[Rfam]
Nucleotides: 070
Base pairs, nucleotide, nucleotide: 001068002067003066004065
Number, partner (000 for none) and nucleotide at each position: 001068g002067g003066u004065c005000a006000a007000u008000g009000a010000u011000g012000u013000g014000a015000u016000g017000g018000c019000a020000u021000g022000u023000a024000u025000u026000a027000g028000c029000u030000g031000a032000a033000u034000u035000c036000a037000a038000a039000g040000u041000u042000a043000u044000g045000u046000a047000a048000a049000u050000u051000c052000u053000a054000a055000a056000a057000u058000a059000c060000a061000c062000u063000g064000a065004g066003a067002c068001c069000u070000a

A member of the RNA family "Small nucleolar RNA SNORD45" from Cnephaeus nilssonii, 70 nucleotides long. Rfam links the family to the GO terms RNA processing and nucleolus. A reference for the family is Galardi et al. (2002), "Purified box C/D snoRNPs are able to reproduce site-specific 2'-O-methylation of target RNA in vitro", Mol Cell Biol. Rfam 15.1 lists 1,629 matches to the family in 521 species. Pairs were carried over by alignment from the consensus structure, which was predicted with PFOLD. NCBI's taxonomy places the organism under Eukaryota, Gnathostomata, Euteleostomi, Amniota, Cnephaeus.